[Rfam]
The family of this 78-nucleotide RNA from Aerococcus sp. HMSC10H05 is "L17 ribosomal protein downstream element". It scores 46 bits against the family's covariance model. Lineage of the source: Bacteria > Bacillati > Bacillota > Lactobacillales > Aerococcus. Rfam classes the family as a cis-regulatory element.

RNA sequence: GGAGUGUCAUGAUGUUGGUUGUACCUAGUAUGGCCGAGUCUAGCUCUAUCUACUCCUAGCGCGAAUGAGUUCGCUAGG
Numbered sequence: 001g002g003a004g005u006g007u008c009a010u011g012a013u014g015u016u017g018g019u020u021g022u023a024c025c026u027a028g029u030a031u032g033g034c035c036g037a038g039u040c041u042a043g044c045u046c047u048a049u050c051u052a053c054u055c056c057u058a059g060c061g062c063g064a065a066u067g068a069g070u071u072c073g074c075u076a077g078g
Stems, first nucleotide, its partner, number of pairs: 002046004011040003017035006055078007
Dot-bracket structure: .((((.....(((...((((((.......))))))..)))..))))........(((((((..........)))))))